[Rfam]
RNA: ffh sRNA
Organism: Profundibacter amoris
RNA sequence: ACACGCGGGGAUCGCCCCCCGUCAGCGAGGUUUCGCCCACGGGGGUGAUUGGC
Numbered sequence: 001a002c003a004c005g006c007g008g009g010g011a012u013c014g015c016c017c018c019c020c021g022u023c024a025g026c027g028a029g030g031u032u033u034c035g036c037c038c039a040c041g042g043g044g045g046u047g048a049u050u051g052g053c
Stems, first nucleotide, its partner, number of pairs: 016045007025036004